RNA sequence: GGUUUAAUUACCCAAGUUUGAGGUAAUUGGAUGUCCCAGCCCGGAAUUUUGAGUUCCUGUGGCUUAGAGUAAAAUUUUGGGACGUCCCACAAAAUUGUGGGGCAAC
Numbered sequence: 001g002g003u004u005u006a007a008u009u010a011c012c013c014a015a016g017u018u019u020g021a022g023g024u025a026a027u028u029g030g031a032u033g034u035c036c037c038a039g040c041c042c043g044g045a046a047u048u049u050u051g052a053g054u055u056c057c058u059g060u061g062g063c064u065u066a067g068a069g070u071a072a073a074a075u076u077u078u079g080g081g082a083c084g085u086c087c088c089a090c091a092a093a094a095u096u097g098u099g100g101g102g103c104a105a106c
Stems, first nucleotide, its partner, number of pairs: 003031010034069001036067001039063003084103007
Dot-bracket structure: ..((((((((((.........))))))))))..(.(..(((...................)))...).)..............(((((((......)))))))...
RNA: SL1 RNA
Organism: Sylvietta virens